[Rfam]
RNA sequence: UAUCCCUGUGAAGAAUGUGGCAUGGAUUAAAAGUAGUGGACUGAUAUCCACUGACGAUUACUUAGUUCUGAGGGAUU
Numbered sequence: 001u002a003u004c005c006c007u008g009u010g011a012a013g014a015a016u017g018u019g020g021c022a023u024g025g026a027u028u029a030a031a032a033g034u035a036g037u038g039g040a041c042u043g044a045u046a047u048c049c050a051c052u053g054a055c056g057a058u059u060a061c062u063u064a065g066u067u068c069u070g071a072g073g074g075a076u077u
Stems, first nucleotide, its partner, number of pairs: 002076005